[Rfam]
RNA: SAM riboswitch aptamer (S box leader)
RNA sequence: GAUUUAUAAAGAAGUGGCGAGAGACCGGCUCUGCGACCCACUGGCAACCAUCCAUAUUUUUAGGAAAAGGUGCCAAAUCCUGUCCCGAAUUAAUGGGAGCAUAUAAAUG
Numbered sequence: 001g002a003u004u005u006a007u008a009a010a011g012a013a014g015u016g017g018c019g020a021g022a023g024a025c026c027g028g029c030u031c032u033g034c035g036a037c038c039c040a041c042u043g044g045c046a047a048c049c050a051u052c053c054a055u056a057u058u059u060u061u062a063g064g065a066a067a068a069g070g071u072g073c074c075a076a077a078u079c080c081u082g083u084c085c086c087g088a089a090u091u092a093a094u095g096g097g098a099g100c101a102u103a104u105a106a107a108u109g
Stems, first nucleotide, its partner, number of pairs: 002108007013042005021031003025082001027080002043074004048070002051065003078101001083098005